This 81-nucleotide RNA from Pavo cristatus belongs to the Rfam family "Small nucleolar RNA SNORD103/SNORD85". NCBI's taxonomy places the organism under Eukaryota, Tetrapoda, Amniota, Phasianidae, Pavo. Gene Ontology terms of the family: RNA processing and nucleolus. The family's RNA type in Rfam is C/D-box small nucleolar RNA. The literature on the family includes a 2001 paper in EMBO J by Huttenhofer et al., "RNomics: an experimental approach that identifies 201 candidates for novel, small, non-messenger RNAs in mouse".
RNA sequence: UCCGGCGAUGAUGACACGCUUGCCCUCACUGAGAGCGCUGUUCCGUAAUGAGAGCCGCACAGUGUGCACAGCUGAGCCGGG
Numbered sequence: 001u002c003c004g005g006c007g008a009u010g011a012u013g014a015c016a017c018g019c020u021u022g023c024c025c026u027c028a029c030u031g032a033g034a035g036c037g038c039u040g041u042u043c044c045g046u047a048a049u050g051a052g053a054g055c056c057g058c059a060c061a062g063u064g065u066g067c068a069c070a071g072c073u074g075a076g077c078c079g080g081g
Base pairs, nucleotide, nucleotide: 001081002080003079004078005077006076